[Rfam]
RNA sequence: GUAACUUAGCUCUUUAGAUGGUUCUGGAGUGCGGGCUUCAAACCCGUAAUGGUACUGCCAUAGGUUCGAUUCCUCUGAGUUAC
Numbered sequence: 001g002u003a004a005c006u007u008a009g010c011u012c013u014u015u016a017g018a019u020g021g022u023u024c025u026g027g028a029g030u031g032c033g034g035g036c037u038u039c040a041a042a043c044c045c046g047u048a049a050u051g052g053u054a055c056u057g058c059c060a061u062a063g064g065u066u067c068g069a070u071u072c073c074u075c076u077g078a079g080u081u082a083c
Stems, first nucleotide, its partner, number of pairs: 001083009012029006030048006050060004062074003

A member of the RNA family "Selenocysteine transfer RNA" from Kipferlia bialata, 83 nucleotides long. Its family is annotated with triplet codon-amino acid adaptor activity in the Gene Ontology. The organism belongs to Kipferlia, within Eukaryota.